A member of the RNA family "tRNA" from Denitratisoma sp. DHT3, 82 nucleotides long. Pairs were carried over by alignment from the consensus structure, which is taken from published work.
RNA sequence: GCGAGGGUGGCGGAAUUGGUAGACGCACUGGAUUUAGGUUCCAGCGGGGCAACCUGUGCGGGUUCGAGUCCCGCCCUUCGCA
Numbered sequence: 001g002c003g004a005g006g007g008u009g010g011c012g013g014a015a016u017u018g019g020u021a022g023a024c025g026c027a028c029u030g031g032a033u034u035u036a037g038g039u040u041c042c043a044g045c046g047g048g049g050c051a052a053c054c055u056g057u058g059c060g061g062g063u064u065c066g067a068g069u070c071c072c073g074c075c076c077u078u079c080g081c082a
Base pairs, nucleotide, nucleotide: 001081002080003079004078005077006076007075010026011025012024028044029043030042031041032040058074059073060072061071062070